[Rfam]
RNA: Phenylalanine leader peptide
RNA sequence: AAUGAUGCAACCCGUUAUUUUUCGUUUCUUUUUUUACUUUAGCACCUGAUUUGAGGAGGCUUGCGCGUAAGAAAAGAAACGAAAAGUAGCGCCUAAGCCUCCCGCAGUGGAGGCUUUUUUGUU
Numbered sequence: 001a002a003u004g005a006u007g008c009a010a011c012c013c014g015u016u017a018u019u020u021u022u023c024g025u026u027u028c029u030u031u032u033u034u035u036a037c038u039u040u041a042g043c044a045c046c047u048g049a050u051u052u053g054a055g056g057a058g059g060c061u062u063g064c065g066c067g068u069a070a071g072a073a074a075a076g077a078a079a080c081g082a083a084a085a086g087u088a089g090c091g092c093c094u095a096a097g098c099c100u101c102c103c104g105c106a107g108u109g110g111a112g113g114c115u116u117u118u119u120u121g122u123u
Stems, first nucleotide, its partner, number of pairs: 014090004019085014034070004040054001055064001057062001095116008